[Rfam]
RNA sequence: CCCUUCUCUUUAAAGCACCCUGCUAAAACUGCAGGAGCCAAGCCUCUCAGGCUUAGCUCAUGUGGCCAUGUAAGCAUGGGUACACCAGGGAAGGAGAACAAAGGCACAGUAUCGGAAAUGAGGCUUGGAGGGACCUCUUUCUUAAUGUCCAGUUUCCUUUGUCUCAAGAUCCUGUGUUACACAU
Numbered sequence: 001c002c003c004u005u006c007u008c009u010u011u012a013a014a015g016c017a018c019c020c021u022g023c024u025a026a027a028a029c030u031g032c033a034g035g036a037g038c039c040a041a042g043c044c045u046c047u048c049a050g051g052c053u054u055a056g057c058u059c060a061u062g063u064g065g066c067c068a069u070g071u072a073a074g075c076a077u078g079g080g081u082a083c084a085c086c087a088g089g090g091a092a093g094g095a096g097a098a099c100a101a102a103g104g105c106a107c108a109g110u111a112u113c114g115g116a117a118a119u120g121a122g123g124c125u126u127g128g129a130g131g132g133a134c135c136u137c138u139u140u141c142u143u144a145a146u147g148u149c150c151a152g153u154u155u156c157c158u159u160u161g162u163c164u165c166a167a168g169a170u171c172c173u174g175u176g177u178u179a180c181a182c183a184u
Stems, first nucleotide, its partner, number of pairs: 018080002021076004028069001031066001035059001037057002040054005103178007111170001128153001131150003
A member of the RNA family "Small nucleolar RNA SNORA81" from Acanthochromis polyacanthus, 184 nucleotides long. The family's RNA type in Rfam is H/ACA-box small nucleolar RNA. A search with the family's covariance model found it, with a score of 102 bits.